Shown here is a 126-nucleotide RNA sequence from Streptomyces sp. DSM 15324, a member of the family "Streptomyces RNA 3920". Identified by deep sequencing of transcriptome at the end of exponential growth phase. Rfam classes the family as a small RNA. The literature on the family includes a 2011 paper in RNA Biol by Vockenhuber et al., "Deep sequencing-based identification of small non-coding RNAs in Streptomyces coelicolor".

[Rfam]
RNA sequence: GAUCGGCCCCCGUCGCUACCGUGAUUGAACGCUGACACAGAGUCAACUAGGCUUGUGGGUGCGGUUCUUCGGGCGUAGAACCGAGGACGGUCCGAGCCACGAGGGGGGAGGCUCGGACCGUCCGUC
Numbered sequence: 001g002a003u004c005g006g007c008c009c010c011c012g013u014c015g016c017u018a019c020c021g022u023g024a025u026u027g028a029a030c031g032c033u034g035a036c037a038c039a040g041a042g043u044c045a046a047c048u049a050g051g052c053u054u055g056u057g058g059g060u061g062c063g064g065u066u067c068u069u070c071g072g073g074c075g076u077a078g079a080a081c082c083g084a085g086g087a088c089g090g091u092c093c094g095a096g097c098c099a100c101g102a103g104g105g106g107g108g109a110g111g112c113u114c115g116g117a118c119c120g121u122c123c124g125u126c
Stems, first nucleotide, its partner, number of pairs: 001014003005010001016050003021032003033045004059074002062071003076083001086122013100107001